[Rfam]
RNA sequence: AAUAGGUCCAAUCUAAUUCUGCAUGGUGGUUUAAUUAUGUAGUCUCGCUUUUGGACCAGAUUAAUUUCCAUCCUUUAUUAUCCUUGUGCUUGUAAUAUUGCUUAGUUCAAUGCACAUGAGAAACGUAAAGGAACACUA
Numbered sequence: 001a002a003u004a005g006g007u008c009c010a011a012u013c014u015a016a017u018u019c020u021g022c023a024u025g026g027u028g029g030u031u032u033a034a035u036u037a038u039g040u041a042g043u044c045u046c047g048c049u050u051u052u053g054g055a056c057c058a059g060a061u062u063a064a065u066u067u068c069c070a071u072c073c074u075u076u077a078u079u080a081u082c083c084u085u086g087u088g089c090u091u092g093u094a095a096u097a098u099u100g101c102u103u104a105g106u107u108c109a110a111u112g113c114a115c116a117u118g119a120g121a122a123a124c125g126u127a128a129a130g131g132a133a134c135a136c137u138a
Stems, first nucleotide, its partner, number of pairs: 005057006019042008027033002071132008083120006
A member of the RNA family "Small nucleolar RNA psi28S-1192" from Drosophila melanogaster, 138 nucleotides long. Rfam describes the family as follows. psi28S-1192 is a member of the H/ACA class of snoRNA. This family is responsible for guiding the modification of uridine 1192 to pseudouridine in Drosophila 28S rRNA. Rfam's curators put it in the seed alignment. Rfam links the family to the GO terms nucleolus and RNA processing. Pairs were carried over by alignment from the consensus structure, which was predicted with ILM.